A member of the RNA family "c-di-GMP-I riboswitch aptamer" from Novimethylophilus kurashikiensis, 86 nucleotides long.
[Rfam]
RNA sequence: GUUGGAAAAGGGCAAACCCGGCCGAAAGGCGGGGACGCAAAGCCACCGGUCUAAAGGAGCAAUCCCAUGACAGCGGGGCCGCCGGA
Numbered sequence: 001g002u003u004g005g006a007a008a009a010g011g012g013c014a015a016a017c018c019c020g021g022c023c024g025a026a027a028g029g030c031g032g033g034g035a036c037g038c039a040a041a042g043c044c045a046c047c048g049g050u051c052u053a054a055a056g057g058a059g060c061a062a063u064c065c066c067a068u069g070a071c072a073g074c075g076g077g078g079c080c081g082c083c084g085g086a
Base pairs, nucleotide, nucleotide: 012038013037017033018032019031020030022029023028042079043078044077046076047075048074049071050070051069056065057064058063

GEMM was predicted in a large-scale screen for bacterial structured RNA regulatory elements. The base pairs follow the family's consensus structure, which is taken from published work. A reference for the family is Weinberg et al. (2007), "Identification of 22 candidate structured RNAs in bacteria using the CMfinder comparative genomics pipeline", Nucleic Acids Res.